[Rfam]
RNA sequence: AUAGAGGGCUAGGGGGUGCUCCAAAGAGGAGCUGAGAGCCGGGUGACCCCGGCAACCCUUGGAACCUGAUCCGGUUAGUACCGGCGGAGGGAAGCCAUGGUAAAAGCAU
Number, nucleotide and partner (000 for none) at each position: 001a000002u000003a000004g000005a000006g000007g096008g095009c094010u093011a059012g058013g057014g056015g000016g053017u000018g032019c031020u030021c029022c028023a000024a000025a000026g000027a000028g022029g021030a020031g019032c018033u000034g000035a000036g000037a000038g000039c052040c051041g050042g049043g048044u000045g000046a000047c000048c043049c042050c041051g040052g039053c016054a000055a000056c014057c013058c012059u011060u000061g000062g000063a000064a000065c090066c089067u088068g000069a000070u000071c084072c083073g082074g081075u000076u000077a000078g000079u000080a000081c074082c073083g072084g071085c000086g000087g000088a067089g066090g065091g000092a000093a010094g009095c008096c007097a000098u000099g000100g000101u000102a000103a000104a000105a000106g000107c000108a000109u000